[Rfam]
RNA sequence: AAUAUCCCAGAAGUAUUCUAAGAAAUACGGUUUGUGACUGUCGGUGUGUGGGGAUAUAUGCAAAUGAUCGUGGUGAUCUACUAGGUAAUACGCCGCCUGGGCUAGUUUGAGCAUAUA
Numbered sequence: 001a002a003u004a005u006c007c008c009a010g011a012a013g014u015a016u017u018c019u020a021a022g023a024a025a026u027a028c029g030g031u032u033u034g035u036g037a038c039u040g041u042c043g044g045u046g047u048g049u050g051g052g053g054a055u056a057u058a059u060g061c062a063a064a065u066g067a068u069c070g071u072g073g074u075g076a077u078c079u080a081c082u083a084g085g086u087a088a089u090a091c092g093c094c095g096c097c098u099g100g101g102c103u104a105g106u107u108u109g110a111g112c113a114u115a116u117a
Stems, first nucleotide, its partner, number of pairs: 006101005040096002043094004055117007066078003080106005